[Rfam]
Source information
Rfam assigns this 87-nucleotide RNA from Triticum urartu to the family "Small nucleolar RNA Z102/R77".
RNA sequence: AGAUGAGAUGAUGAAUGAGAUUAAUUUCCCUAUUGGUUUGAUUGGCUGAUAUGAUGUCCUAAAGUACUGAACCGAAUCUGAUCAUCU
Numbered sequence: 001a002g003a004u005g006a007g008a009u010g011a012u013g014a015a016u017g018a019g020a021u022u023a024a025u026u027u028c029c030c031u032a033u034u035g036g037u038u039u040g041a042u043u044g045g046c047u048g049a050u051a052u053g054a055u056g057u058c059c060u061a062a063a064g065u066a067c068u069g070a071a072c073c074g075a076a077u078c079u080g081a082u083c084a085u086c087u
Stems, first nucleotide, its partner, number of pairs: 002086004044059002047056001
The match comes from Rfam's covariance-model search (60 bits). The source organism's lineage runs through Eukaryota, Mesangiospermae, commelinids, Triticodae and Triticum. Its family is annotated with nucleolus and RNA processing in the Gene Ontology. The base pairs follow the family's consensus structure, which was predicted with PFOLD.